[Rfam]
RNA sequence: UCUAAUCUUCGGGGCAGGGUGAAAUUCCCGACCGGCGGUAAAUAGCUUUAAGCUUGAAGUCCGCGACCCGCAAUAAUUACUAUUGUGGUGGACCUGGUGAAAAUCCAGGACCGACAGUUACAGUCUGGAUGAGAGAAGAUGUCG
Numbered sequence: 001u002c003u004a005a006u007c008u009u010c011g012g013g014g015c016a017g018g019g020u021g022a023a024a025u026u027c028c029c030g031a032c033c034g035g036c037g038g039u040a041a042a043u044a045g046c047u048u049u050a051a052g053c054u055u056g057a058a059g060u061c062c063g064c065g066a067c068c069c070g071c072a073a074u075a076a077u078u079a080c081u082a083u084u085g086u087g088g089u090g091g092a093c094c095u096g097g098u099g100a101a102a103a104u105c106c107a108g109g110a111c112c113g114a115c116a117g118u119u120a121c122a123g124u125c126u127g128g129a130u131g132a133g134a135g136a137a138g139a140u141g142u143c144g
Base pairs, nucleotide, nucleotide: 005140006139007138008137009136010135017029018028019027031124032123033113034112035064036063037062038061059111060110068088069087093109094108095107096106097105115127116126117125
FMN riboswitch aptamer (RFN element): a 144-nucleotide sequence from Oceanobacillus halophilus. Rfam's curators write: The RFN element is a highly conserved domain that is found frequently in the 5'-untranslated regions of prokaryotic mRNAs that encode for flavin mononucleotide (FMN) biosynthesis and transport proteins. The match comes from Rfam's covariance-model search (122 bits). The base pairs follow the family's consensus structure, which is taken from published work. The organism belongs to Oceanobacillus, within Bacteria.